[Rfam]
RNA sequence: UCAGGGGCUGAUUGUCCAAACGCAAUUCUUGUCUUUCUUCUCCUUCAUCAGGAGUUGUGGAUGGACAUCAGGCCCCUGG
Numbered sequence: 001u002c003a004g005g006g007g008c009u010g011a012u013u014g015u016c017c018a019a020a021c022g023c024a025a026u027u028c029u030u031g032u033c034u035u036u037c038u039u040c041u042c043c044u045u046c047a048u049c050a051g052g053a054g055u056u057g058u059g060g061a062u063g064g065a066c067a068u069c070a071g072g073c074c075c076c077u078g079g
Base pairs, nucleotide, nucleotide: 002078003077004076005075006074007073009070010069011068012067014066015065016064017063018062021059022058023057024056025055026054027053028052029051030050031049